[Rfam]
RNA sequence: GAUUUAUAAAGAAGAGGUAAGAGACUAGGCUCGAUGACCCUCUGGCAACCAUUCGAUUCAAUGAAAAGGUGCCAAUUCCUACCCUUUCAGGGAACUAUAAAUU
Numbered sequence: 001g002a003u004u005u006a007u008a009a010a011g012a013a014g015a016g017g018u019a020a021g022a023g024a025c026u027a028g029g030c031u032c033g034a035u036g037a038c039c040c041u042c043u044g045g046c047a048a049c050c051a052u053u054c055g056a057u058u059c060a061a062u063g064a065a066a067a068g069g070u071g072c073c074a075a076u077u078c079c080u081a082c083c084c085u086u087u088c089a090g091g092g093a094a095c096u097a098u099a100a101a102u103u
Stems, first nucleotide, its partner, number of pairs: 001103008013043005021032003026081004044073004049069002052064002082092004
The record is a 103-nucleotide RNA from Algoriphagus kandeliae, which matches "SAM riboswitch aptamer (S box leader)" in Rfam. The family's consensus secondary structure is taken from published work.